[Rfam]
Nucleotides: 122
Base pairs, nucleotide, nucleotide: 006117007116008115009114010113011112012111013110020063021062022061023060024059025058026057065101066100067099068097069096072095073094074093079088080087
Number, partner (000 for none) and nucleotide at each position: 001000c002000g003000a004000c005000g006117c007116c008115g009114u010113g011112c012111g013110g014000g015000a016000g017000a018000g019000u020063u021062c022061c023060g024059g025058g026057u027000a028000c029000u030000g031000c032000a033000u034000g035000c036000a037000c038000a039000g040000a041000a042000a043000a044000u045000c046000g047000u048000g049000u050000g051000u052000g053000a054000a055000g056000g057026a058025c059024c060023c061022g062021g063020a064000c065101g066100c067099c068097g069096a070000a071000g072095g073094a074093g075000c076000a077000g078000c079088a080087c081000c082000u083000c084000c085000c086000c087080g088079u089000c090000a091000a092000u093074c094073u095072c096069u097068c098000a099067g100066g101065c102000a103000c104000a105000c106000a107000g108000g109000a110013c111012c112011g113010u114009g115008c116007g117006g118000g119000c120000u121000c122000c
Glycine riboswitch aptamer: a 122-nucleotide sequence from Rhodococcus oxybenzonivorans. NCBI's taxonomy places the organism under Bacteria, Actinomycetes, Mycobacteriales, Nocardiaceae, Rhodococcus.